[Rfam]
RNA sequence: UGAUGGUGUCGCACACACUGCUGGGAGAUGUCAUCACAUGCUACCUCCUUCGGUGAUGUCAUCACCCAGCACCAUGAUGUCCACUG
Numbered sequence: 001u002g003a004u005g006g007u008g009u010c011g012c013a014c015a016c017a018c019u020g021c022u023g024g025g026a027g028a029u030g031u032c033a034u035c036a037c038a039u040g041c042u043a044c045c046u047c048c049u050u051c052g053g054u055g056a057u058g059u060c061a062u063c064a065c066c067c068a069g070c071a072c073c074a075u076g077a078u079g080u081c082c083a084c085u086g
Base pairs, nucleotide, nucleotide: 001086002085005082006081010079011078019071020070021069022068023067024066025065027063028062029061030060032058033057034056035055036054037053